[Rfam]
RNA sequence: AGCGCGCAUCAAGAGCGGAUCAUCUCCGCGCCAACCUGCCUUCCCCGGCAAGGUGGCGGCUCAUCAAAGAGCGAUGCGGCCGAUGUCCGGCAACGAAACGGGAUCUA
Numbered sequence: 001a002g003c004g005c006g007c008a009u010c011a012a013g014a015g016c017g018g019a020u021c022a023u024c025u026c027c028g029c030g031c032c033a034a035c036c037u038g039c040c041u042u043c044c045c046c047g048g049c050a051a052g053g054u055g056g057c058g059g060c061u062c063a064u065c066a067a068a069g070a071g072c073g074a075u076g077c078g079g080c081c082g083a084u085g086u087c088c089g090g091c092a093a094c095g096a097a098a099c100g101g102g103a104u105c106u107a
Stems, first nucleotide, its partner, number of pairs: 006077005015029005030057003035053003038049003042103004079091004
A member of the RNA family "SAM-I/IV (S-adenosyl methionine) riboswitch aptamer" from Asticcacaulis benevestitus, 107 nucleotides long. The family's consensus secondary structure is taken from published work. Taxonomically the source falls in Asticcacaulis benevestitus (Bacteria, Pseudomonadati, Alphaproteobacteria, Caulobacteraceae). A search with the family's covariance model found it, with a score of 60 bits. On this family, see Trausch et al., PNAS 2014: "Structural basis for diversity in the SAM clan of riboswitches".